[Rfam]
RNA sequence: GACGAAUCUAUUGCCCACCAAGCCCGUCGCUUACCGGCGGCGGGGAGGGUGGGCGAAAAGAGGAAUCC
Numbered sequence: 001g002a003c004g005a006a007u008c009u010a011u012u013g014c015c016c017a018c019c020a021a022g023c024c025c026g027u028c029g030c031u032u033a034c035c036g037g038c039g040g041c042g043g044g045g046a047g048g049g050u051g052g053g054c055g056a057a058a059a060g061a062g063g064a065a066u067c068c
Stems, first nucleotide, its partner, number of pairs: 011056003015052005023044009